The family of this 80-nucleotide sequence from Geodermatophilus nigrescens is "Actino-pnp RNA".

[Rfam]
RNA sequence: GCCGGUCCUCGGUGGUGGCCUCCGGGCAUGCCCUCCCGUCGCGGGGGGAACGUCCCCGGGGGCUUCGAUCGAAGACCGGU
Dot-bracket structure: (((((((.(((((...((((((((((.(((....................))).))))))))))...))))).)))))))
NCBI's taxonomy places the organism under Bacteria, Bacillati, Actinomycetota, Geodermatophilales, Geodermatophilus.